[Rfam]
Shown here is an 88-nucleotide RNA sequence from Scaptodrosophila lebanonensis, a member of the family "mir-317 microRNA precursor family". For this family Rfam cites "Systematic discovery and characterization of fly microRNAs using 12 Drosophila genomes" (Stark et al., Genome Res, 2007).

RNA sequence: UGCGACUGCCACUGGAUACACCCUGUGCUCGCUCUGAAAUUCUGCAAGCAAGUGAACACAGCUGGUGGUAUCCAGUGGCCGAUUGCAC
Numbered sequence: 001u002g003c004g005a006c007u008g009c010c011a012c013u014g015g016a017u018a019c020a021c022c023c024u025g026u027g028c029u030c031g032c033u034c035u036g037a038a039a040u041u042c043u044g045c046a047a048g049c050a051a052g053u054g055a056a057c058a059c060a061g062c063u064g065g066u067g068g069u070a071u072c073c074a075g076u077g078g079c080c081g082a083u084u085g086c087a088c
Base pairs, nucleotide, nucleotide: 008079009078010077011076012075014073015072016071018069019068020066021065022064023061024060025059027057029055030054
Source information
A search with the family's covariance model found it, with a score of 77 bits.